Description: A member of the RNA family "MIR5269 microRNA precursor family" from Medicago truncatula, 80 nucleotides long. The base pairs follow the family's consensus structure, which was predicted with RNAalifold. A search with the family's covariance model found it, with a score of 76 bits.
RNA sequence: UUGACUUAAAUUAAUGUGGAUCCUACGUUUUUAAAAUGGAACCCACAUAAAGUGGUGGAAUAUACAUUAAUUUCACUCAA
Numbered sequence: 001u002u003g004a005c006u007u008a009a010a011u012u013a014a015u016g017u018g019g020a021u022c023c024u025a026c027g028u029u030u031u032u033a034a035a036a037u038g039g040a041a042c043c044c045a046c047a048u049a050a051a052g053u054g055g056u057g058g059a060a061u062a063u064a065c066a067u068u069a070a071u072u073u074c075a076c077u078c079a080a
Stems, first nucleotide, its partner, number of pairs: 001080004006075001008073011023058003026054006